[Rfam]
RNA: DUF805b RNA
RNA sequence: AGGGGGGUAGCCGAAAACCCUGUAGAGUAGGCA
Numbered sequence: 001a002g003g004g005g006g007g008u009a010g011c012c013g014a015a016a017a018c019c020c021u022g023u024a025g026a027g028u029a030g031g032c033a
Stems, first nucleotide, its partner, number of pairs: 002021004010032003